[Rfam]
RNA sequence: GCGAUGAGCUUAUUUUGCAUAAGACGAGAUUGACCCGCCGAUUUUAGGCAAUGCACAAUGUGGAGUGCUGUCUCUCGCCGCAAAACGCCAAAAAGACGUUCUUUUAGGACGUCUU
Numbered sequence: 001g002c003g004a005u006g007a008g009c010u011u012a013u014u015u016u017g018c019a020u021a022a023g024a025c026g027a028g029a030u031u032g033a034c035c036c037g038c039c040g041a042u043u044u045u046a047g048g049c050a051a052u053g054c055a056c057a058a059u060g061u062g063g064a065g066u067g068c069u070g071u072c073u074c075u076c077g078c079c080g081c082a083a084a085a086c087g088c089c090a091a092a093a094a095g096a097c098g099u100u101c102u103u104u105u106a107g108g109a110c111g112u113c114u115u
Base pairs, nucleotide, nucleotide: 015083016082017081018080025077026076027075028074029073032072033071034070037049038048053068055066056065093115094114095113096112097111098110099109100108101107

A member of the RNA family "BsrF" from Fictibacillus enclensis, 115 nucleotides long. It is annotated as a small RNA. For this family Rfam cites "Novel small RNA-encoding genes in the intergenic regions of Bacillus subtilis" (Saito et al., Gene, 2008).